RNA sequence: CCGCUGUCACAACGGCUUCCUGGCGUGGCGGCUAAACCAUUUUAUCGGAGCA
Numbered sequence: 001c002c003g004c005u006g007u008c009a010c011a012a013c014g015g016c017u018u019c020c021u022g023g024c025g026u027g028g029c030g031g032c033u034a035a036a037c038c039a040u041u042u043u044a045u046c047g048g049a050g051c052a
Stems, first nucleotide, its partner, number of pairs: 004031007013022002015051003019048002

This 52-nucleotide RNA belongs to the Rfam family "SAM/SAH riboswitch aptamer". On this family, see Weickhmann et al., Nucleic Acids Res 2019: "The structure of the SAM/SAH-binding riboswitch". The family's consensus secondary structure is taken from published work.